Record summary
The record is a 70-nucleotide sequence from Branchiostoma belcheri, which matches "mir-2060 microRNA precursor family" in Rfam. Rfam links the family to the GO terms RISC complex and miRNA-mediated post-transcriptional gene silencing. The family's consensus secondary structure was predicted with RNAalifold. A search with the family's covariance model found it, with a score of 64 bits.
[Rfam]
RNA sequence: UGUAUAUGGAUGGUGUUCAGCACCAAGGACAGGUUUGUAUGUGUGUGGAUGGUGUUCAGCACCAAGGACA
Numbered sequence: 001u002g003u004a005u006a007u008g009g010a011u012g013g014u015g016u017u018c019a020g021c022a023c024c025a026a027g028g029a030c031a032g033g034u035u036u037g038u039a040u041g042u043g044u045g046u047g048g049a050u051g052g053u054g055u056u057c058a059g060c061a062c063c064a065a066g067g068a069c070a
Base pairs, nucleotide, nucleotide: 001070002069003068011064012063013062014061015060016059017058019056020055021054022053023052024051025050027044029042030041031040033038